RNA sequence: AGAGCAACGGGUGAUGAAGCUCACCUCUAUAACCGCAUCGAAAGAUGCUGAUGGCUUCUACCAGGGC
Numbered sequence: 001a002g003a004g005c006a007a008c009g010g011g012u013g014a015u016g017a018a019g020c021u022c023a024c025c026u027c028u029a030u031a032a033c034c035g036c037a038u039c040g041a042a043a044g045a046u047g048c049u050g051a052u053g054g055c056u057u058c059u060a061c062c063a064g065g066g067c
Stems, first nucleotide, its partner, number of pairs: 010025004016058006035048004